[Rfam]
RNA: Wolbachia sRNA 46
Organism: Trichonephila clavata
RNA sequence: AUUUCCACAAGGGAGGAUGUCAUUCCAGUGCUUGACACUGGAAUCCAGCCUUUAUUAUGCAGCCACUUGGUUGAAAUUAAGUCUUCUGGAUCCCAGUGUCUAGGCACUGGGAUGACACCAUUCUUUUCCUGGAUC
Number, nucleotide and partner (000 for none) at each position: 001a000002u000003u000004u000005c000006c000007a000008c000009a000010a000011g130012g129013g128014a127015g126016g000017a000018u117019g116020u115021c114022a113023u112024u111025c110026c109027a108028g107029u106030g105031c104032u103033u102034g100035a099036c098037a097038c096039u095040g094041g093042a000043a091044u090045c089046c088047a087048g086049c000050c000051u000052u000053u000054a000055u000056u000057a000058u000059g000060c000061a000062g000063c000064c000065a000066c000067u000068u000069g000070g000071u000072u000073g000074a000075a000076a000077u000078u000079a000080a000081g000082u000083c000084u000085u000086c048087u047088g046089g045090a044091u043092c000093c041094c040095a039096g038097u037098g036099u035100c034101u000102a033103g032104g031105c030106a029107c028108u027109g026110g025111g024112a023113u022114g021115a020116c019117a018118c000119c000120a000121u000122u000123c000124u000125u000126u015127u014128c013129c012130u011131g000132g000133a000134u000135c000